A member of the RNA family "Small nucleolar RNA SNORA29" from Rattus norvegicus, 134 nucleotides long. The organism belongs to Rattus, within Eukaryota. Pairs were carried over by alignment from the consensus structure, which was predicted with PFOLD. Rfam's curators write: ACA29 is a member of the H/ACA class of snoRNA that guide the sites of modification of uridines to pseudouridines. The family's RNA type in Rfam is H/ACA-box small nucleolar RNA. Its Rfam clan is "SNORA20 clan". A search with the family's covariance model found it, with a score of 124 bits. Its family is annotated with RNA processing and nucleolus in the Gene Ontology. On this family, see Huttenhofer et al., EMBO J 2001: "RNomics: an experimental approach that identifies 201 candidates for novel, small, non-messenger RNAs in mouse".
RNA sequence: UUUCCCAUUUGACUACCACACUUUCUCCUAAUAGAGUUUAGUGGCUAUGCUUAUGGGAUAGAUGAAGGGUGCCAUGAUCUGAACAGGGGCUGCUCCGUGUCUUCCCUUUGUAUGAAGUGGCUGAACAGGAAGAA
Numbered sequence: 001u002u003u004c005c006c007a008u009u010u011g012a013c014u015a016c017c018a019c020a021c022u023u024u025c026u027c028c029u030a031a032u033a034g035a036g037u038u039u040a041g042u043g044g045c046u047a048u049g050c051u052u053a054u055g056g057g058a059u060a061g062a063u064g065a066a067g068g069g070u071g072c073c074a075u076g077a078u079c080u081g082a083a084c085a086g087g088g089g090c091u092g093c094u095c096c097g098u099g100u101c102u103u104c105c106c107u108u109u110g111u112a113u114g115a116a117g118u119g120g121c122u123g124a125a126c127a128g129g130a131a132g133a134a
Base pairs, nucleotide, nucleotide: 004057005056006055007054016044017043018042019041071121072120073119074118088107089106